Background
The record is a 101-nucleotide RNA, which matches "PhotoRC-II RNA" in Rfam.
[Rfam]
RNA sequence: UAACAAAGCGACAUCUUGACCCCUCAAACCGAGACCUAUAGGGUCAUUAAACUACGUCUCUAAUACCUUCACCUGAGGGUGGUGAAGGAAUACUUAACACA
Numbered sequence: 001u002a003a004c005a006a007a008g009c010g011a012c013a014u015c016u017u018g019a020c021c022c023c024u025c026a027a028a029c030c031g032a033g034a035c036c037u038a039u040a041g042g043g044u045c046a047u048u049a050a051a052c053u054a055c056g057u058c059u060c061u062a063a064u065a066c067c068u069u070c071a072c073c074u075g076a077g078g079g080u081g082g083u084g085a086a087g088g089a090a091u092a093c094u095u096a097a098c099a100c101a
Stems, first nucleotide, its partner, number of pairs: 017046005023041002031060005066088007